This 71-nucleotide RNA from Mycoplana azooxidifex belongs to the Rfam family "Makes More Granules Regulator RNA (mmgR)". A search with the family's covariance model found it, with a score of 59 bits. The pairing is the family consensus, mapped onto this sequence. Rfam's curators write: SuhB later renamed mmgR (makes more granules regulator) was a putative non-coding RNA found multiple times in the Agrobacterium tumefaciens genome and related alpha-proteobacteria. The family's RNA type in Rfam is small RNA.

RNA sequence: CUGUAAUACCCUCCUUGGGUGUUUCCUCCCUAGACUUAACCGCGCCCAAAGCGCGGUUUUUUUUGACCGGC
Numbered sequence: 001c002u003g004u005a006a007u008a009c010c011c012u013c014c015u016u017g018g019g020u021g022u023u024u025c026c027u028c029c030c031u032a033g034a035c036u037u038a039a040c041c042g043c044g045c046c047c048a049a050a051g052c053g054c055g056g057u058u059u060u061u062u063u064u065g066a067c068c069g070g071c
Stems, first nucleotide, its partner, number of pairs: 008020004040056006